Glycine riboswitch aptamer: a 95-nucleotide sequence from Vogesella sp. LIG4.

RNA sequence: UCGGCUGAAUCUGGAGAGCGGCGCAUAUCGCGCCCACCGAAGGGGCUAACGGCGCAAUGCCGGAAAAUCUCAGGUGCAUGGACAGAGGGGUGUGA
Numbered sequence: 001u002c003g004g005c006u007g008a009a010u011c012u013g014g015a016g017a018g019c020g021g022c023g024c025a026u027a028u029c030g031c032g033c034c035c036a037c038c039g040a041a042g043g044g045g046c047u048a049a050c051g052g053c054g055c056a057a058u059g060c061c062g063g064a065a066a067a068u069c070u071c072a073g074g075u076g077c078a079u080g081g082a083c084a085g086a087g088g089g090g091u092g093u094g095a
Base pairs, nucleotide, nucleotide: 006090010086011085012084013083020034021033022032023031036075037074038073039071040070043069044068050062051061052060053059